[Rfam]
The family of this 755-nucleotide sequence is "MISL RNA".
RNA sequence: AGAUAAUCCCGGGCGACCGGGGAAAGGUUGGGUCAGGCUGAUUGACCCCGCCCCUCUGAAACGAAAUUGAAAGAUUUGGUGGAGAGGCAGGAUUCACCGGUUUCUCUGGCAGGUUCGCGCCUGUCAGUAACGCGAAAGACGAAACCGGGCGGAUAGGAACGAUUAGAAACCGUUCCGAACCAGAUCAAGUAGUUCGGGCAAGUUUCGAGCCUGAACGAAUCGCAGUUGCCAAAAGGCAUCGGUUGCUACUGCGCAUCAGCACGGAUGGAUGACUCUGGCGGUCGUGAAAAACGAUCAGCCAAAUCAAAAACGCCGAAAGGCGGCACAAAGUGAGCAUCCAGACCGGGAAGGACACAAAGACUUGGCAGGUCAUGUGAAAACCUUCCGCAAGCGGCGGCGUUAAAAACAACACCGCUGCAUUGUGAAAAGAAAGCGACCUGCGAGUGAAGAGGCGAGACCCGUGGCCUCGGGCGAACGCACCGUCAAAAGCGGUGGCUGACCCGAAGCUAACGGUCAAGACGCGAACAAAGAAAACACAAGCGUGUCUUGACCUGGUUCGCAAGCUGGUGCUGCAAACAUCGGCCCAAGCGAGCUGAAAAGCCUCACUCAAAAUCCGGACGCCGCAAGGUGCUGGACGGCCCUGCUACGAGGCCGAUAACUCCGCUUGCCGUGGAGAAUGGCGUCGGGAAACCGGCAGCCCCCAACAAGGGUUGUGCGCCUAAUGCCGGUUCGGGAAAGAGAGUGUGGCGAACUCC
Numbered sequence: 001a002g003a004u005a006a007u008c009c010c011g012g013g014c015g016a017c018c019g020g021g022g023a024a025a026g027g028u029u030g031g032g033u034c035a036g037g038c039u040g041a042u043u044g045a046c047c048c049c050g051c052c053c054c055u056c057u058g059a060a061a062c063g064a065a066a067u068u069g070a071a072a073g074a075u076u077u078g079g080u081g082g083a084g085a086g087g088c089a090g091g092a093u094u095c096a097c098c099g100g101u102u103u104c105u106c107u108g109g110c111a112g113g114u115u116c117g118c119g120c121c122u123g124u125c126a127g128u129a130a131c132g133c134g135a136a137a138g139a140c141g142a143a144a145c146c147g148g149g150c151g152g153a154u155a156g157g158a159a160c161g162a163u164u165a166g167a168a169a170c171c172g173u174u175c176c177g178a179a180c181c182a183g184a185u186c187a188a189g190u191a192g193u194u195c196g197g198g199c200a201a202g203u204u205u206c207g208a209g210c211c212u213g214a215a216c217g218a219a220u221c222g223c224a225g226u227u228g229c230c231a232a233a234a235g236g237c238a239u240c241g242g243u244u245g246c247u248a249c250u251g252c253g254c255a256u257c258a259g260c261a262c263g264g265a266u267g268g269a270u271g272a273c274u275c276u277g278g279c280g281g282u283c284g285u286g287a288a289a290a291a292c293g294a295u296c297a298g299c300c301a302a303a304u305c306a307a308a309a310a311c312g313c314c315g316a317a318a319g320g321c322g323g324c325a326c327a328a329a330g331u332g333a334g335c336a337u338c339c340a341g342a343c344c345g346g347g348a349a350g351g352a353c354a355c356a357a358a359g360a361c362u363u364g365g366c367a368g369g370u371c372a373u374g375u376g377a378a379a380a381c382c383u384u385c386c387g388c389a390a391g392c393g394g395c396g397g398c399g400u401u402a403a404a405a406a407c408a409a410c411a412c413c414g415c416u417g418c419a420u421u422g423u424g425a426a427a428a429g430a431a432a433g434c435g436a437c438c439u440g441c442g443a444g445u446g447a448a449g450a451g452g453c454g455a456g457a458c459c460c461g462u463g464g465c466c467u468c469g470g471g472c473g474a475a476c477g478c479a480c481c482g483u484c485a486a487a488a489g490c491g492g493u494g495g496c497u498g499a500c501c502c503g504a505a506g507c508u509a510a511c512g513g514u515c516a517a518g519a520c521g522c523g524a525a526c527a528a529a530g531a532a533a534a535c536a537c538a539a540g541c542g543u544g545u546c547u548u549g550a551c552c553u554g555g556u557u558c559g560c561a562a563g564c565u566g567g568u569g570c571u572g573c574a575a576a577c578a579u580c581g582g583c584c585c586a587a588g589c590g591a592g593c594u595g596a597a598a599a600g601c602c603u604c605a606c607u608c609a610a611a612a613u614c615c616g617g618a619c620g621c622c623g624c625a626a627g628g629u630g631c632u633g634g635a636c637g638g639c640c641c642u643g644c645u646a647c648g649a650g651g652c653c654g655a656u657a658a659c660u661c662c663g664c665u666u667g668c669c670g671u672g673g674a675g676a677a678u679g680g681c682g683u684c685g686g687g688a689a690a691c692c693g694g695c696a697g698c699c700c701c702c703a704a705c706a707a708g709g710g711u712u713g714u715g716c717g718c719c720u721a722a723u724g725c726c727g728g729u730u731c732g733g734g735a736a737a738g739a740g741a742g743u744g745u746g747g748c749g750a751a752c753u754c755c
Stems, first nucleotide, its partner, number of pairs: 008021005026052003030048007061080002064077003098147007109124005115135005151181002156176005166206005190218001192216008221253005227238004241438006277300003280296006311322004345386004350381001354375003359371002399410003442608003449604004465506001467504005478494006514550010555593006563583007613635005619630004636654005643681004659675006690729007697716002700710003740754003